[Rfam]
RNA sequence: CUUGAGCCUACAUACUUCUUCAUAUGCCCAUAUGGAGUCGGCCAGAUUUAUGGAAUGUUAAGAAGUAUGUAUCGUUGGG
Numbered sequence: 001c002u003u004g005a006g007c008c009u010a011c012a013u014a015c016u017u018c019u020u021c022a023u024a025u026g027c028c029c030a031u032a033u034g035g036a037g038u039c040g041g042c043c044a045g046a047u048u049u050a051u052g053g054a055a056u057g058u059u060a061a062g063a064a065g066u067a068u069g070u071a072u073c074g075u076u077g078g079g
Stems, first nucleotide, its partner, number of pairs: 009071012022058004028053005